[Rfam]
RNA sequence: AGUCUCAAGUUUGAGGCCACAGCAGAAAUGCCCUGUGUGUGGCCCUGUCAGAUUCCAAUGAAUCUGCAAAUUCUGCU
Numbered sequence: 001a002g003u004c005u006c007a008a009g010u011u012u013g014a015g016g017c018c019a020c021a022g023c024a025g026a027a028a029u030g031c032c033c034u035g036u037g038u039g040u041g042g043c044c045c046u047g048u049c050a051g052a053u054u055c056c057a058a059u060g061a062a063u064c065u066g067c068a069a070a071u072u073c074u075g076c077u
Stems, first nucleotide, its partner, number of pairs: 013045001015044004021077007028040003049066007
A member of the RNA family "Mammalian CPEB3 ribozyme" from Alligator sinensis, 77 nucleotides long. The family's consensus secondary structure is taken from published work. The match comes from Rfam's covariance-model search (47 bits). For this family Rfam cites "A genomewide search for ribozymes reveals an HDV-like sequence in the human CPEB3 gene" (Salehi-Ashtiani et al., Science, 2006). The mammalian CPEB3 ribozyme is a self cleaving RNA located in the second intron of the CPEB3 gene which belongs to a family of genes regulating messenger RNA polyadenylation.